[Rfam]
RNA sequence: GGUUGGUCCGCGAGCUGUGGGUUGUUGUUAAGCUGUUUAACAUUGUCUCCCCCCACAACCACAUUUGACCGGCUUUGCCUUUU
Numbered sequence: 001g002g003u004u005g006g007u008c009c010g011c012g013a014g015c016u017g018u019g020g021g022u023u024g025u026u027g028u029u030a031a032g033c034u035g036u037u038u039a040a041c042a043u044u045g046u047c048u049c050c051c052c053c054c055a056c057a058a059c060c061a062c063a064u065u066u067g068a069c070c071g072g073c074u075u076u077g078c079c080u081u082u083u
Stems, first nucleotide, its partner, number of pairs: 001074008010066001014062001016057006026042003030038002
Y RNA: an 83-nucleotide sequence from Ochotona princeps. NCBI's taxonomy places the organism under Eukaryota, Metazoa, Euteleostomi, Tetrapoda, Ochotona. The family's consensus secondary structure is taken from published work. It is one of the family's seed sequences. It is annotated as a non-coding RNA gene.